Shown here is a 183-nucleotide sequence from Cylicocyclus nassatus, a member of the family "Small nucleolar RNA U3". The family has 87 seed sequences and 19,072 matches in Rfam 15.1. Rfam describes the family as follows. Small nucleolar RNAs (snoRNAs) are involved in the processing and modification of rRNA in the nucleolus. There are two main classes of snoRNAs: the box C/D class, and the box H/ACA class. By type it is a C/D-box small nucleolar RNA. Clan: U3 clan. The literature on the family includes a 1997 paper in Nucleic Acids Res by Zwieb, "The uRNA database". The source organism's lineage runs through Eukaryota, Opisthokonta, Ecdysozoa, Strongyloidea and Cylicocyclus.
RNA sequence: GAAAUCAUACUAUACAGAAUCAUUUCUGUAGUGUGUAUUUCGCAAUCCCAACCAAAAAGCGACACCUGUCCACCGCGAUGAACGGGAAACCGGCGAGUUGCGAGCGGGAAGAACGCGACUUGUCGCGCUGAGGACCGUGACGUGGUCGCAAGAUCGCGUCGGCGACUCGCUCUUCUGAGCGGU
Numbered sequence: 001g002a003a004a005u006c007a008u009a010c011u012a013u014a015c016a017g018a019a020u021c022a023u024u025u026c027u028g029u030a031g032u033g034u035g036u037a038u039u040u041c042g043c044a045a046u047c048c049c050a051a052c053c054a055a056a057a058a059g060c061g062a063c064a065c066c067u068g069u070c071c072a073c074c075g076c077g078a079u080g081a082a083c084g085g086g087a088a089a090c091c092g093g094c095g096a097g098u099u100g101c102g103a104g105c106g107g108g109a110a111g112a113a114c115g116c117g118a119c120u121u122g123u124c125g126c127g128c129u130g131a132g133g134a135c136c137g138u139g140a141c142g143u144g145g146u147c148g149c150a151a152g153a154u155c156g157c158g159u160c161g162g163c164g165a166c167u168c169g170c171u172c173u174u175c176u177g178a179g180c181g182g183u
Stems, first nucleotide, its partner, number of pairs: 001041005006035006015028005047061001049059001072183005092171010104138003114127004139160009
Dot-bracket structure: (((((((((((...(((((....))))).)))))).))))).....(.(.........).)..........(((((...............((((((((((..(((.......((((......))))........)))(((((((((....))))))))).)))))))))).......)))))